Shown here is an 83-nucleotide sequence from Momordica charantia, a member of the family "Small nucleolar RNA Z199". The organism belongs to Momordica, within Eukaryota. The family's RNA type in Rfam is C/D-box small nucleolar RNA. The family has 17 seed sequences and 953 matches in Rfam 15.1. Rfam describes the family as follows. snoZ199 is a C/D box small nucleolar RNA, which acts as a methylation guide RNA for sites on 18S and 25S rRNA. Rice snoZ199 is reported to be homologous to Arabidopsis snoR13.
RNA sequence: UACGCAGGGGAUGAGGAAAAUUAACUGCAACAAAAUGAUCGAAGAAUUUCGUGAUUACUUUCGUAUUUAAGUCUCUGAUGCUC
Numbered sequence: 001u002a003c004g005c006a007g008g009g010g011a012u013g014a015g016g017a018a019a020a021u022u023a024a025c026u027g028c029a030a031c032a033a034a035a036u037g038a039u040c041g042a043a044g045a046a047u048u049u050c051g052u053g054a055u056u057a058c059u060u061u062c063g064u065a066u067u068u069a070a071g072u073c074u075c076u077g078a079u080g081c082u083c
Stems, first nucleotide, its partner, number of pairs: 002082001004081003040051004